Background:
This 284-nucleotide RNA from Stegodyphus mimosarum belongs to the Rfam family "Nuclear RNase P". It scores 151 bits against the family's covariance model. The literature on the family includes a 1998 paper in Annu Rev Biochem by Frank and Pace, "Ribonuclease P: unity and diversity in a tRNA processing ribozyme". Pairs were carried over by alignment from the consensus structure, which is taken from published work. It is annotated as a ribozyme.
Nucleotides: 284
Stems, first nucleotide, its partner, number of pairs: 001284004007278003012239007020057005033047005066268005076215004087101005102117006118211007139196003240256007
Number, partner (000 for none) and nucleotide at each position: 001284g002283c003282a004281a005000u006000a007278g008277u009276g010000a011000g012239c013238u014237u015236g016235c017234a018233u019000u020057a021056g022055g023054g024053g025000c026000a027000a028000c029000g030000u031000g032000c033047g034046a035045g036044u037043a038000c039000c040000u041000g042000u043037u044036a045035c046034u047033u048000a049000u050000a051000c052000g053024c054023c055022c056021u057020u058000g059000g060000g061000a062000a063000g064000g065000u066268c067267u068266g069265a070264g071000a072000g073000a074000a075000g076215a077214a078213c079212c080000g081000u082000u083000g084000u085000u086000a087101g088100a089099a090098c091097c092000g093000a094000a095000a096000u097091g098090g099089u100088u101087c102117c103116u104115c105114a106113u107112g108000g109000a110000a111000a112107c113106a114105u115104g116103a117102g118211g119210c120209g121208g122207g123206c124205a125000a126000a127000g128000a129000g130000a131000a132000a133000a134000u135000g136000a137000u138000g139196u140195u141194u142000g143000u144000u145000u146000g147000a148000a149000g150000g151000u152000a153000g154000c155000a156000a157000a158000u159000g160000a161000u162000u163000c164000u165000u166000g167000u168000u169000g170000u171000g172000a173000u174000g175000a176000u177000g178000c179000c180000g181000u182000g183000a184000c185000c186000u187000u188000c189000a190000a191000a192000u193000g194141a195140a196139a197000u198000u199000g200000g201000g202000a203000a204000a205124u206123g207122c208121u209120c210119g211118u212079g213078g214077u215076u216000a217000g218000a219000a220000u221000a222000a223000g224000a225000a226000g227000c228000u229000c230000g231000a232000u233018a234017u235016g236015c237014g238013a239012g240256g241255c242254g243253c244252c245251u246250g247000c248000u249000g250246c251245g252244g253243g254242c255241g256240u257000a258000a259000c260000u261000c262000a263000a264070u265069u266068c267067a268066g269000a270000c271000u272000a273000c274000u275000c276009c277008g278007c279000u280000a281004u282003u283002g284001c